Shown here is a 64-nucleotide RNA from Streptomyces sp. WMMB 714, a member of the family "Streptomyces RNA 2736". About the family: Identified by deep sequencing of transcriptome at the end of exponential growth phase. Appears smaller on northern blot than sequencing transcript. On this family, see Vockenhuber et al., RNA Biol 2011: "Deep sequencing-based identification of small non-coding RNAs in Streptomyces coelicolor". The base pairs follow the family's consensus structure.
RNA sequence: CACCCGGCCAGGAUCCCGUGGGGGGAAUCCGUGACCGGGAAACGGGAGCGCCCCGUCGACAGGC
Numbered sequence: 001c002a003c004c005c006g007g008c009c010a011g012g013a014u015c016c017c018g019u020g021g022g023g024g025g026a027a028u029c030c031g032u033g034a035c036c037g038g039g040a041a042a043c044g045g046g047a048g049c050g051c052c053c054c055g056u057c058g059a060c061a062g063g064c
Stems, first nucleotide, its partner, number of pairs: 001062001003039005009031001011030004015025003044053003